Rfam assigns this 112-nucleotide sequence from Paenibacillus piri to the family "epsC RNA". It scores 102 bits against the family's covariance model.
RNA sequence: AGGUAAUGUCUACUGUACCUUUAUCACUGUAGGCACUCGGCCAUGCUGUGGGUUGGCAAGACCUUAGACGUUGAUUGUCAAGGGUGUGGCGUGAGGGAGGGUUAGAUGCCCU
Numbered sequence: 001a002g003g004u005a006a007u008g009u010c011u012a013c014u015g016u017a018c019c020u021u022u023a024u025c026a027c028u029g030u031a032g033g034c035a036c037u038c039g040g041c042c043a044u045g046c047u048g049u050g051g052g053u054u055g056g057c058a059a060g061a062c063c064u065u066a067g068a069c070g071u072u073g074a075u076u077g078u079c080a081a082g083g084g085u086g087u088g089g090c091g092u093g094a095g096g097g098a099g100g101g102u103u104a105g106a107u108g109c110c111c112u
Base pairs, nucleotide, nucleotide: 001020002019003018004017007035008034009033010032011031012030013029036095037094038093039092040090041089042088043087044086045085046084047083050064051063052062053061054060067079068078069077070076098112099111100110101109102108